A member of the RNA family "Bacterial large subunit ribosomal RNA" from Actinobaculum sp. 352, 475 nucleotides of a longer RNA.
The source organism's lineage runs through Bacteria, Actinomycetota, Actinomycetes, Actinomycetaceae and Actinobaculum.
The family's consensus secondary structure is taken from published work.
Nucleotides: 475
Base pairs, nucleotide, nucleotide: 001415002414003413004412005411006410011024012023013022014021015020026131027129028128029127030126031125032124033123036122037118038117039116040115041114042113043112044111045110051104052102053101058098059097060096062094063093064092065091070086071084072083073082074081075080135160136159137158138157139156140155141154142153143152144151165176166175167174180353181352182351183350185349186348187347191343192342193341200340202339203338204337205336206335207334219313220312223310224309225308226307227306228305229304230303231302232301240297241296242295243294244293246270247269248268251265252264253263271275276291280289281288354405355404356403357402358401359400360399361398416470418467419466420465421464422463423462424461425460426459427458434454435453436452437451438450439448440447441446
Number, partner (000 for none) and nucleotide at each position: 001415c002414u003413c004412c005411c006410c007000g008000a009000a010000a011024u012023g013022u014021a015020u016000u017000u018000a019000g020015g021014u022013a023012c024011a025000g026131c027129g028128u029127u030126g031125c032124g033123u034000g035000g036122u037118u038117c039116c040115u041114u042113g043112u044111g045110g046000a047000g048000g049000u050000a051104g052102a053101g054000c055000g056000a057000c058098u059097g060096g061000g062094u063093g064092g065091c066000u067000g068000a069000u070086g071084g072083g073082c074081c075080u076000g077000a078000c079000a080075g081074g082073g083072u084071u085000a086070c087000u088000g089000a090000g091065g092064u093063c094062a095000g096060c097059c098058a099000a100000a101053c102052u103000c104051c105000g106000a107000a108000u109000g110045c111044u112043g113042c114041a115040a116039g117038g118037g119000u120000u121000g122036a123033g124032c125031g126030u127029g128028g129027c130000a131026g132000u133000g134000a135160g136159a137158c138157g139156g140155c141154g142153g143152g144151g145000g146000a147000u148000a149000a150000g151144c152143u153142u154141c155140g156139u157138u158137g159136u160135c161000g162000a163000g164000a165176g166175g167174g168000a169000a170000a171000c172000a173000g174167c175166c176165c177000a178000g179000a180353u181352c182351g183350u184000c185349g186348g187347u188000u189000a190000a191343g192342g193341u194000c195000c196000c197000g198000a199000a200340g201000u202339g203338u204337g205336u206335g207334c208000u209000a210000a211000g212000u213000g214000g215000g216000a217000a218000a219313g220312g221000a222000u223310g224309u225308g226307g227306g228305g229304u230303u231302g232301c233000u234000g235000u236000g237000a238000c239000a240297g241296c242295c243294a244293g245000g246270a247269g248268g249000u250000u251265g252264g253263c254000u255000u256000a257000g258000a259000a260000g261000c262000a263253g264252c265251c266000a267000u268248c269247c270246u271275u272000g273000a274000a275271a276291g277000a278000g279000u280289g281288c282000g283000u284000a285000a286000u287000a288281g289280c290000u291276c292000a293244c294243u295242g296241g297240u298000c299000g300000a301232g302231u303230g304229g305228u306227u307226c308225u309224g310223c311000g312220c313219c314000g315000a316000u317000a318000a319000u320000g321000u322000a323000g324000c325000g326000g327000g328000g329000c330000u331000u332000a333000a334207g335206c336205a337204c338203a339202c340200c341193a342192c343191c344000g345000a346000a347187g348186c349185c350183g351182c352181g353180g354405a355404u356403g357402c358401c359400c360399a361398g362000c363000g364000u365000g366000u367000u368000c369000c370000c371000g372000g373000g374000c375000c376000u377000g378000c379000c380000u381000u382000g383000g384000g385000g386000u387000g388000g389000g390000u391000u392000g393000a394000g395000g396000g397000g398361u399360u400359g401358g402357g403356u404355g405354u406000g407000g408000u409000a410006g411005g412004g413003g414002a415001g416470c417000g418467u419466u420465c421464u422463g423462c424461g425460u426459g427458g428000g429000g430000u431000g432000a433000a434454g435453c436452u437451g438450c439448c440447g441446g442000g443000u444000g445000a446441c447440c448439g449000u450438g451437u452436g453435g454434u455000g456000g457000a458427c459426u460425g461424c462423g463422u464421g465420g466419g467418a468000g469000u470416g471000a472000g473000a474000a475000u